Overview
c-di-GMP-I riboswitch aptamer: an 84-nucleotide RNA sequence from Paraliobacillus quinghaiensis.

RNA sequence: GCAUUGAAAAGGCAAACUUACUGAAAAGUAAGGGCGCAAAGUUACAGACCUAAGGGAAUGACCUAUGGUGGCUGUGCUGCCAAA
Dot-bracket structure: ...........((...((((((....))))))...))..(((..((((((....((.....))...)))..))).)))......
Numbered sequence: 001g002c003a004u005u006g007a008a009a010a011g012g013c014a015a016a017c018u019u020a021c022u023g024a025a026a027a028g029u030a031a032g033g034g035c036g037c038a039a040a041g042u043u044a045c046a047g048a049c050c051u052a053a054g055g056g057a058a059u060g061a062c063c064u065a066u067g068g069u070g071g072c073u074g075u076g077c078u079g080c081c082a083a084a
Stems, first nucleotide, its partner, number of pairs: 012037002017032006040078003045074003048069003055063002
The base pairs follow the family's consensus structure, which is taken from published work.